[Rfam]
RNA sequence: UUACUUCCUCAAUCCCACAAUAUAAGAUCGUUUUGCAAGCUGUUUUAGCUUGCAAAACGAUCUUAUAUUAUGGGACGGAGUGAGUAC
Numbered sequence: 001u002u003a004c005u006u007c008c009u010c011a012a013u014c015c016c017a018c019a020a021u022a023u024a025a026g027a028u029c030g031u032u033u034u035g036c037a038a039g040c041u042g043u044u045u046u047a048g049c050u051u052g053c054a055a056a057a058c059g060a061u062c063u064u065a066u067a068u069u070a071u072g073g074g075a076c077g078g079a080g081u082g083a084g085u086a087c
Base pairs, nucleotide, nucleotide: 003085004084005083008080009079010078013075014074015073016072017071019069020068021067022066023065024064025063026062027061028060029059030058031057032056033055034054035053036052037051038050039049040048041047
The record is an 87-nucleotide RNA from Triticum urartu, which matches "MIR1120/MIR1122 microRNA precursor family" in Rfam. The literature on the family includes a 2007 paper in Genome Biol by Yao et al., "Cloning and characterization of microRNAs from wheat (Triticum aestivum L.)". The base pairs follow the family's consensus structure, which was predicted with RNAalifold. The family has 6 seed sequences and 44,765 matches in Rfam 15.1.